[Rfam]
RNA sequence: AGAGGUCUUCAGGGCAGGGUGAAAUUCCCGACCGGCGGUGACUAGGUGCAGUGGCAUGUAGAAGUCCGUGAGCGUAAGCUGAUGUGGUGUGAUUCCACAACCGACAGUAAAGUCUGGAUGGGAGAAGACAAAG
Numbered sequence: 001a002g003a004g005g006u007c008u009u010c011a012g013g014g015c016a017g018g019g020u021g022a023a024a025u026u027c028c029c030g031a032c033c034g035g036c037g038g039u040g041a042c043u044a045g046g047u048g049c050a051g052u053g054g055c056a057u058g059u060a061g062a063a064g065u066c067c068g069u070g071a072g073c074g075u076a077a078g079c080u081g082a083u084g085u086g087g088u089g090u091g092a093u094u095c096c097a098c099a100a101c102c103g104a105c106a107g108u109a110a111a112g113u114c115u116g117g118a119u120g121g122g123a124g125a126a127g128a129c130a131a132a133g
Base pairs, nucleotide, nucleotide: 005129006128007127008126009125010124017029018028019027031113032112033103034102035069036068037067038066064101065100072079073078083099084098085097086096087095105116106115107114